The record is an 85-nucleotide RNA sequence from Ipomoea nil, which matches "Small nucleolar RNA snoR14" in Rfam. It scores 73 bits against the family's covariance model. Pairs were carried over by alignment from the consensus structure. On this family, see Brown et al., RNA 2001: "Multiple snoRNA gene clusters from Arabidopsis".
[Rfam]
RNA sequence: GUGAGGUGACGAUAUAGUUCAUGUUUCUCAAUCCACUGAUACAUUUGUGUGAUGUUAUACAUGAAUCCUGACAGGUUCUGAUCGC
Numbered sequence: 001g002u003g004a005g006g007u008g009a010c011g012a013u014a015u016a017g018u019u020c021a022u023g024u025u026u027c028u029c030a031a032u033c034c035a036c037u038g039a040u041a042c043a044u045u046u047g048u049g050u051g052a053u054g055u056u057a058u059a060c061a062u063g064a065a066u067c068c069u070g071a072c073a074g075g076u077u078c079u080g081a082u083c084g085c
Base pairs, nucleotide, nucleotide: 001085002084003083004082